[Rfam]
Nucleotides: 320
Stems, first nucleotide, its partner, number of pairs: 001108003005102007013093002018090002024087010035074002037070003042067004046062003116171002118168004122139004127135002140162003147158003201273001203271001207267001212262002223254001228250001230248001232246001
Number, partner (000 for none) and nucleotide at each position: 001108g002107g003106a004000u005102g006101u007100g008099a009098g010097g011096g012000c013093g014092a015000u016000c017000u018090g019089g020000c021000u022000g023000c024087g025086a026085c027084a028083u029082c030081u031080g032079u033078c034000a035074c036073c037070c038069c039068a040000u041000u042067g043066a044065u045064c046062g047061c048060c049000a050000g051000g052000g053000u054000u055000g056000a057000u058000u059000c060048g061047g062046c063000u064045g065044a066043u067042c068039u069038g070037g071000c072000u073036g074035g075000c076000u077000a078033g079032g080031c081030g082029g083028g084027u085026g086025u087024c088000c089019c090018c091000u092014u093013c094000c095000u096011c097010c098009c099008u100007c101006a102005c103000c104000g105000c106003u107002c108001c109000a110000u111000g112000u113000g114000u115000g116171u117170c118168c119167c120166u121165c122139c123138c124137g125136a126000a127135g128134c129000u130000g131000c132000g133000c134128g135127c136125u137124c138123g139122g140162u141161c142160g143000a144000a145000g146000a147158g148157g149156a150000c151000g152000a153000c154000c155000u156149u157148c158147c159000c160142c161141g162140a163000u164000a165121g166120a167119g168118g169000a170117g171116g172000a173000c174000c175000g176000u177000u178000c179000u180000u181000c182000g183000g184000u185000c186000a187000a188000g189000g190000g191000u192000a193000u194000a195000c196000g197000a198000g199000u200000a201273g202000c203271u204000g205000c206000g207267c208000u209000c210000c211000c212262c213261u214000g215000c216000u217000a218000g219000a220000a221000c222000c223254u224000c225000c226000a227000a228250a229000c230248a231000a232246g233000c234000u235000c236000u237000c238000a239000a240000g241000g242000u243000c244000c245000a246232u247000a248230u249000a250228u251000a252000u253000a254223a255000c256000a257000u258000u259000a260000a261213a262212g263000a264000a265000a266000u267207g268000u269000u270000u271203a272000c273201c274000a275000a276000a277000a278000a279000a280000u281000g282000u283000u284000u285000u286000c287000c288000c289000a290000a291000a292000u293000c294000a295000u296000a297000u298000u299000a300000c301000c302000c303000u304000g305000c306000c307000u308000a309000a310000u311000a312000a313000a314000a315000u316000c317000a318000u319000u320000u